[Rfam]
RNA sequence: CCAGUUGGCCGGGCAGCCGCGCUUUACCAAUGCCGAAAGGCGGUAGGGGGAGGAAAGUCCGGGCUCCACGGAAACACGGUGCCGGAUAACGUCCGGCGAGGGCGACCUCAGGGAAAGUGCCACAGAAAGCAAACCGCCUGAUCCUUGGAUCGGGUAAGGGUGAAAGGGUGGGGUAAGAGCCCACCGCGUCUCUGGCGACAGCGACGGCACGGUAAACCCCACCGGGAGCAAAACCGAAUAGGGAUGACGCGGAGCGCGAAAGCGCUCCAGCCCGUUUCCGGGCCGGUCAUCCGGGUGGGUUGCAUGAGGCGGCGCGCAAGCGUCGUCCCAGAUGAAUGGCUGCCACGUUCCGGCCUCGGCCGGAGCCAUACAGAACCCGGCUUACAGGCCAACUGGCAAA
Numbered sequence: 001c002c003a004g005u006u007g008g009c010c011g012g013g014c015a016g017c018c019g020c021g022c023u024u025u026a027c028c029a030a031u032g033c034c035g036a037a038a039g040g041c042g043g044u045a046g047g048g049g050g051a052g053g054a055a056a057g058u059c060c061g062g063g064c065u066c067c068a069c070g071g072a073a074a075c076a077c078g079g080u081g082c083c084g085g086a087u088a089a090c091g092u093c094c095g096g097c098g099a100g101g102g103c104g105a106c107c108u109c110a111g112g113g114a115a116a117g118u119g120c121c122a123c124a125g126a127a128a129g130c131a132a133a134c135c136g137c138c139u140g141a142u143c144c145u146u147g148g149a150u151c152g153g154g155u156a157a158g159g160g161u162g163a164a165a166g167g168g169u170g171g172g173g174u175a176a177g178a179g180c181c182c183a184c185c186g187c188g189u190c191u192c193u194g195g196c197g198a199c200a201g202c203g204a205c206g207g208c209a210c211g212g213u214a215a216a217c218c219c220c221a222c223c224g225g226g227a228g229c230a231a232a233a234c235c236g237a238a239u240a241g242g243g244a245u246g247a248c249g250c251g252g253a254g255c256g257c258g259a260a261a262g263c264g265c266u267c268c269a270g271c272c273c274g275u276u277u278c279c280g281g282g283c284c285g286g287u288c289a290u291c292c293g294g295g296u297g298g299g300u301u302g303c304a305u306g307a308g309g310c311g312g313c314g315c316g317c318a319a320g321c322g323u324c325g326u327c328c329c330a331g332a333u334g335a336a337u338g339g340c341u342g343c344c345a346c347g348u349u350c351c352g353g354c355c356u357c358g359g360c361c362g363g364a365g366c367c368a369u370a371c372a373g374a375a376c377c378c379g380g381c382u383u384a385c386a387g388g389c390c391a392a393c394u395g396g397c398a399a400a
Stems, first nucleotide, its partner, number of pairs: 001396010011385001012344007020050001022048007055383003059380005064228004073277002077224005082096005097111001098109004112219002117217002119213003134159002136155008167185006186208001187206004192201003232301004242292006270283004308327008

Record summary:
A member of the RNA family "Bacterial RNase P class A" from Martinezella rhizogenes, 400 nucleotides long. It is annotated as a ribozyme. Lineage of the source: Bacteria > Pseudomonadati > Hyphomicrobiales > Martinezella > Martinezella rhizogenes.